ylbH leader: a 117-nucleotide sequence from Bacillus taeanensis.
Its family is annotated with regulation of gene expression in the Gene Ontology.
This family is a putative regulatory RNA structure that is found upstream of the ylbH gene in B. subtilis and related low GC Gram-positive bacteria.
The literature on the family includes a 2004 paper in Proc Natl Acad Sci U S A by Barrick et al., "New RNA motifs suggest an expanded scope for riboswitches in bacterial genetic control".
The match comes from Rfam's covariance-model search (85 bits).
Pairs were carried over by alignment from the consensus structure.
[Rfam]
RNA sequence: AUAAAAAAACCCGUAAGUAUUUACUUACGGGUGGCCCUCAUGCAAAUUAUGCGUCAGGCAAUGGGAGAGGAGAAACCGGAGGAAGAACUUAUGGGGAAAAGUAAGCCUUCUCCGCGG
Numbered sequence: 001a002u003a004a005a006a007a008a009a010c011c012c013g014u015a016a017g018u019a020u021u022u023a024c025u026u027a028c029g030g031g032u033g034g035c036c037c038u039c040a041u042g043c044a045a046a047u048u049a050u051g052c053g054u055c056a057g058g059c060a061a062u063g064g065g066a067g068a069g070g071a072g073a074a075a076c077c078g079g080a081g082g083a084a085g086a087a088c089u090u091a092u093g094g095g096g097a098a099a100a101g102u103a104a105g106c107c108u109u110c111u112c113c114g115c116g117g
Stems, first nucleotide, its partner, number of pairs: 011030008037065005077114004082110004088105004
Dot-bracket structure: ..........((((((((....))))))))......(((((...................)))))...........((((.((((..((((..........)))).))))))))...